[Rfam]
RNA sequence: AGGCUGCUGUGUGAUGAGUGCAUAGUUCAGCAGAUGACCUGUGAUGAUCACAGUUCCUGUCUUUCGCCAAUUUCUGAUGCAGCCU
Numbered sequence: 001a002g003g004c005u006g007c008u009g010u011g012u013g014a015u016g017a018g019u020g021c022a023u024a025g026u027u028c029a030g031c032a033g034a035u036g037a038c039c040u041g042u043g044a045u046g047a048u049c050a051c052a053g054u055u056c057c058u059g060u061c062u063u064u065c066g067c068c069a070a071u072u073u074c075u076g077a078u079g080c081a082g083c084c085u
Stems, first nucleotide, its partner, number of pairs: 004082004
Shown here is an 85-nucleotide sequence from Junco hyemalis, a member of the family "Small nucleolar RNA snR60/Z15/Z230/Z193/J17". The match comes from Rfam's covariance-model search (46 bits). Lineage of the source: Eukaryota > Craniata > Dinosauria > Aves > Junco. The pairing is the family consensus, mapped onto this sequence. Rfam 15.1 lists 3,592 matches to the family in 1,855 species.